[Rfam]
RNA sequence: CCGCCCGUCGCUACUACCGAUUGAAUGGUUUAGUGAGAUCCUCGGAUCGUCGGCGUCGGGACGGCUUUGCCGCCUCGCUCGCAUGUACGAGAAGACGAUCAAACUUGAUCAUUUAGAGGAAGUAAAAGUCGUAACAAGGUUUCCGUAGGUGAACCUGCGGAAGGAUCAUUA
Numbered sequence: 001c002c003g004c005c006c007g008u009c010g011c012u013a014c015u016a017c018c019g020a021u022u023g024a025a026u027g028g029u030u031u032a033g034u035g036a037g038a039u040c041c042u043c044g045g046a047u048c049g050u051c052g053g054c055g056u057c058g059g060g061a062c063g064g065c066u067u068u069g070c071c072g073c074c075u076c077g078c079u080c081g082c083a084u085g086u087a088c089g090a091g092a093a094g095a096c097g098a099u100c101a102a103a104c105u106u107g108a109u110c111a112u113u114u115a116g117a118g119g120a121a122g123u124a125a126a127a128g129u130c131g132u133a134a135c136a137a138g139g140u141u142u143c144c145g146u147a148g149g150u151g152a153a154c155c156u157g158c159g160g161a162a163g164g165a166u167c168a169u170u171a
Stems, first nucleotide, its partner, number of pairs: 001138001003135001006131002009128001012124004017119002021115001023114008032105003037100004042095002047090004053082003057077004140163010